Rfam assigns this 101-nucleotide RNA from Dioscorea zingiberensis to the family "MIR535 microRNA precursor family". Rfam 15.1 lists 544 matches to the family in 108 species. Lineage of the source: Eukaryota > Streptophyta > Magnoliopsida > Dioscoreales > Dioscorea. Gene Ontology terms of the family: RISC complex and miRNA-mediated post-transcriptional gene silencing.
RNA sequence: GGUGUUGUGUGACAAUGAGAGAGAGCACGCUGGUUGGCGGCCAUGGGAGGCUGAGGGCCAUGGCUGUUCACCGGCGUGCUCUUUCUCGUUGUCAUCCAGUU
Numbered sequence: 001g002g003u004g005u006u007g008u009g010u011g012a013c014a015a016u017g018a019g020a021g022a023g024a025g026c027a028c029g030c031u032g033g034u035u036g037g038c039g040g041c042c043a044u045g046g047g048a049g050g051c052u053g054a055g056g057g058c059c060a061u062g063g064c065u066g067u068u069c070a071c072c073g074g075c076g077u078g079c080u081c082u083u084u085c086u087c088g089u090u091g092u093c094a095u096c097c098a099g100u101u
Stems, first nucleotide, its partner, number of pairs: 010094005016088002020084002023081001025079010